[Rfam]
RNA sequence: UGGGGACAAGGAAGCUUAAGGAGUCACAAAAGAGCGCUUGUCGCUCUUCUUCACUCUUGGGAAGGUCUGAGAUAAGGUCACUUCAUUCCCGAGACGGGAAGUGUAGUAAAUGCACGUGAAGGAACCAGAAAAAGUAUUGCAUAACUCUACAAAUUGUCCACGACGCCAGUUUGGCUGAGACAGGGUUGAUGCAAUUGAGAAUUUUUCACGACUGGCAGUGCUAAGUGCGAUGGCUUCUCCUAAAACUCAAUUCAGACUACUCUGUAACCAA
Numbered sequence: 001u002g003g004g005g006a007c008a009a010g011g012a013a014g015c016u017u018a019a020g021g022a023g024u025c026a027c028a029a030a031a032g033a034g035c036g037c038u039u040g041u042c043g044c045u046c047u048u049c050u051u052c053a054c055u056c057u058u059g060g061g062a063a064g065g066u067c068u069g070a071g072a073u074a075a076g077g078u079c080a081c082u083u084c085a086u087u088c089c090c091g092a093g094a095c096g097g098g099a100a101g102u103g104u105a106g107u108a109a110a111u112g113c114a115c116g117u118g119a120a121g122g123a124a125c126c127a128g129a130a131a132a133a134g135u136a137u138u139g140c141a142u143a144a145c146u147c148u149a150c151a152a153a154u155u156g157u158c159c160a161c162g163a164c165g166c167c168a169g170u171u172u173g174g175c176u177g178a179g180a181c182a183g184g185g186u187u188g189a190u191g192c193a194a195u196u197g198a199g200a201a202u203u204u205u206u207c208a209c210g211a212c213u214g215g216c217a218g219u220g221c222u223a224a225g226u227g228c229g230a231u232g233g234c235u236u237c238u239c240c241u242a243a244a245a246c247u248c249a250a251u252u253c254a255g256a257c258u259a260c261u262c263u264g265u266a267a268c269c270a271a
Stems, first nucleotide, its partner, number of pairs: 001270003006265003013236002016233002019058005032046005067255005076213004086100005101115005116209007137194005